Small nucleolar RNA U54: a 90-nucleotide RNA from Malus domestica. The literature on the family includes a 2003 paper in Nucleic Acids Res by Chen et al., "The high diversity of snoRNAs in plants: identification and comparative study of 120 snoRNA genes from Oryza sativa". Rfam's curators write: U54 is a C/D box small nucleolar RNA, which acts as a methylation guide for 18S ribosomal RNA in plants. The family's RNA type in Rfam is C/D-box small nucleolar RNA. It scores 49 bits against the family's covariance model. The family is grouped with related families in Rfam's "U54 clan".

RNA sequence: UGCUCUGUGAUUACGUGCCUGGAAUUGGCAAUAUACGCUAUUCCGAUUCAGAACAUGAAUGGAUAACUCUUAAGAGAAAUUAUGAGGGCA
Numbered sequence: 001u002g003c004u005c006u007g008u009g010a011u012u013a014c015g016u017g018c019c020u021g022g023a024a025u026u027g028g029c030a031a032u033a034u035a036c037g038c039u040a041u042u043c044c045g046a047u048u049c050a051g052a053a054c055a056u057g058a059a060u061g062g063a064u065a066a067c068u069c070u071u072a073a074g075a076g077a078a079a080u081u082a083u084g085a086g087g088g089c090a
Stems, first nucleotide, its partner, number of pairs: 001090005